[Rfam]
RNA sequence: GUAGAUACGGCGACAUGGUACCAAAGACUAUUGCUGGGAAGAUCUUUGGCUCCAUCUGUUCCCUGAGCGGCGUGCUUGUGAUCGCUCUACCCGUCCCCGUCAUCGUCUCAAAC
Number, nucleotide and partner (000 for none) at each position: 001g113002u112003a000004g109005a000006u000007a106008c105009g104010g103011c000012g101013a100014c099015a000016u000017g096018g095019u000020a094021c093022c000023a000024a000025a000026g000027a000028c000029u000030a000031u000032u000033g000034c000035u000036g076037g075038g000039a073040a000041g000042a000043u000044c000045u000046u000047u000048g062049g061050c000051u000052c000053c000054a000055u000056c000057u000058g000059u000060u000061c049062c048063c000064u000065g000066a000067g000068c000069g000070g000071c000072g000073u039074g000075c037076u036077u000078g000079u000080g000081a000082u000083c000084g000085c000086u000087c000088u000089a000090c000091c000092c000093g021094u020095c018096c017097c000098c000099g014100u013101c012102a000103u010104c009105g008106u007107c000108u000109c004110a000111a000112a002113c001
Description: Rfam assigns this 113-nucleotide sequence from Anabas testudineus to the family "Potassium channel RNA editing signal". The family's consensus secondary structure is taken from published work. The literature on the family includes a 2004 paper in Nat Struct Mol Biol by Bhalla et al., "Control of human potassium channel inactivation by editing of a small mRNA hairpin". The match comes from Rfam's covariance-model search (88 bits). This family represents a group of sequences related to the human potassium channel Kv1.1 hairpin element which directs the efficient modification of an adenosine to inosine by an adenosine deaminase acting on RNA (ADAR). The ADAR modification causes an isoleucine/valine recoding event which lies in the ion-conducting pore of the potassium channel. It is thought that this editing event targets the process of fast inactivation and allows a more rapid recovery from inactivation at negative potentials.